This 84-nucleotide RNA from Actinoplanes friuliensis belongs to the Rfam family "ZMP/ZTP riboswitch aptamer (pfl RNA motif)". A search with the family's covariance model found it, with a score of 44 bits. Lineage of the source: Bacteria > Bacillati > Actinomycetota > Actinomycetes > Actinoplanes friuliensis.
RNA sequence: ACCCGGACACGCGACUGGCGGCAUCGAGGAUGGGGACCACCAUCGGGGAGCUUGCCGUGGGGGCCGUCCGCCUGGGUGCCCACG
Numbered sequence: 001a002c003c004c005g006g007a008c009a010c011g012c013g014a015c016u017g018g019c020g021g022c023a024u025c026g027a028g029g030a031u032g033g034g035g036a037c038c039a040c041c042a043u044c045g046g047g048g049a050g051c052u053u054g055c056c057g058u059g060g061g062g063g064c065c066g067u068c069c070g071c072c073u074g075g076g077u078g079c080c081c082a083c084g
Base pairs, nucleotide, nucleotide: 003059006056008054009053011051012050015047016046017072018071019070020069021068030043031042032041033040061079063077064076065075